Shown here is a 121-nucleotide sequence from Tianweitania populi, a member of the family "Alphaproteobacterial ar14". On this family, see Robledo et al., Environ Microbiol 2017: "A conserved alpha-proteobacterial small RNA contributes to osmoadaptation and symbiotic efficiency of rhizobia on legume roots". The pairing is the family consensus, mapped onto this sequence. The match comes from Rfam's covariance-model search (88 bits). Taxonomically the source falls in Tianweitania (Bacteria, Pseudomonadati, Alphaproteobacteria, Phyllobacteriaceae). Rfam describes the family as follows. Smr14C2 was renamed NfeR1 (Nodule Formation Efficiency RNA) highly expressed in salt stress and during the symbiotic interaction on legume roots.

[Rfam]
RNA sequence: GAUAUUUCGCUGAGCCUACCUCCUCCCAGGUCUCAGCGGAUACGACCGGAACCUACCUCCUCCCAGGAACCGGUCACCCAUACGACGCCCGCCGGAUCUCCUCCCCCGGCGGGCGUUGUCG
Number, nucleotide and partner (000 for none) at each position: 001g000002a000003u000004a000005u000006u000007u039008c038009g037010c000011u035012g034013a033014g032015c000016c030017u029018a000019c000020c000021u000022c000023c000024u000025c000026c000027c000028a000029g017030g016031u000032c014033u013034c012035a011036g000037c009038g008039g007040a000041u000042a000043c000044g075045a074046c073047c072048g071049g070050a000051a000052c067053c066054u000055a000056c000057c000058u000059c000060c000061u000062c000063c000064c000065a000066g053067g052068a000069a000070c049071c048072g047073g046074u045075c044076a000077c000078c000079c000080a000081u000082a000083c000084g000085a116086c115087g114088c113089c112090c111091g110092c109093c108094g107095g106096a000097u000098c000099u000100c000101c000102u000103c000104c000105c000106c095107c094108g093109g092110c091111g090112g089113g088114c087115g086116u085117u000118g000119u000120c000121g000